bZIP non canonical Hac1/Xbp1 intron: a 70-nucleotide RNA sequence from Verticillium dahliae. NCBI's taxonomy places the organism under Eukaryota, Fungi, Ascomycota, Glomerellales, Verticillium. Rfam's curators write: bZIP intron RNA is a non-canonical intron that was first reported in HAC1 gene in yeast and XBP1 gene in Metazoa. Rfam classes the family as a small RNA.
[Rfam]
Nucleotides: 070
Stems, first nucleotide, its partner, number of pairs: 001070001003068005009062005021039006044056003
Number, partner (000 for none) and nucleotide at each position: 001070c002000c003068u004067u005066u006065c007064c008000u009062c010061c011060g012059a013058c014000g015000u016000g017000a018000c019000a020000c021039a022038a023037c024036g025035u026034c027000c028000u029000g030000c031000a032000g033000u034026g035025a036024u037023g038022u039021u040000g041000u042000u043000c044056g045055a046054c047000c048000u049000g050000c051000c052000g053000u054046g055045u056044c057000g058013g059012u060011c061010g062009g063000a064007g065006g066005a067004a068003a069000u070001g